[Rfam]
RNA sequence: UGGAAGAAUCUGUAAAGCUCAGGAGGGAUAGCGCCAUUAUAUCACAGACUAAUGAUUUAAUCAUAUGAUAUUUGGCGCUGUCCAUCCUGAGUUUCAUGGCUUCUUCAU
Dot-bracket structure: .........(.....(((((((((.((((((((((......................................)))))))))).))))))))).....).........
Numbered sequence: 001u002g003g004a005a006g007a008a009u010c011u012g013u014a015a016a017g018c019u020c021a022g023g024a025g026g027g028a029u030a031g032c033g034c035c036a037u038u039a040u041a042u043c044a045c046a047g048a049c050u051a052a053u054g055a056u057u058u059a060a061u062c063a064u065a066u067g068a069u070a071u072u073u074g075g076c077g078c079u080g081u082c083c084a085u086c087c088u089g090a091g092u093u094u095c096a097u098g099g100c101u102u103c104u105u106c107a108u
Stems, first nucleotide, its partner, number of pairs: 010099001016093009026083010
This 108-nucleotide sequence from Lupinus angustifolius belongs to the Rfam family "MIR390 microRNA precursor family". Rfam links the family to the GO terms RISC complex and miRNA-mediated post-transcriptional gene silencing. The source organism's lineage runs through Eukaryota, Streptophyta, Pentapetalae, Genisteae and Lupinus. On this family, see Gustafson et al., Nucleic Acids Res 2005: "ASRP: the Arabidopsis Small RNA Project Database".